The family of this 53-nucleotide sequence from Paracidovorax valerianellae is "nhaA-I RNA".
Rfam classes the family as a riboswitch.
From the family's description: Acidobacteria, Alphaproteobacteria, Betaproteobacteria and Gammaproteobacteria, Verrucomicrobia, cand. division NC10.
Taxonomically the source falls in Paracidovorax (Bacteria, Pseudomonadati, Betaproteobacteria, Burkholderiales).

RNA sequence: GGGUGGAGCGCCAUGUCGGGCGUUUCAGGAUUAGCGCAGGUCGGGCCGCCUCG
Dot-bracket structure: ....((((((((......))))))))........((.((((......))))))